[Rfam]
RNA sequence: UGAGCAACAAUAUAAAUGCCUAUAUAAUGUCGUGAUUGGACGACCAGUUUCUACCUCAAGCCGUAAACUUGAGACUAUAGCGCAAAUUCGUGGGUGA
Number, nucleotide and partner (000 for none) at each position: 001u000002g000003a000004g000005c000006a000007a000008c000009a000010a000011u000012a000013u000014a000015a000016a000017u000018g083019c082020c080021u079022a078023u077024a076025u000026a000027a000028u046029g044030u043031c042032g041033u040034g000035a000036u000037u000038g000039g000040a033041c032042g031043a030044c029045c000046a028047g000048u000049u000050u000051c000052u000053a000054c000055c073056u072057c071058a070059a069060g068061c000062c000063g000064u000065a000066a000067a000068c060069u059070u058071g057072a056073g055074a000075c000076u024077a023078u022079a021080g020081c000082g019083c018084a000085a000086a000087u000088u000089c000090g000091u000092g000093g000094g000095u000096g000097a000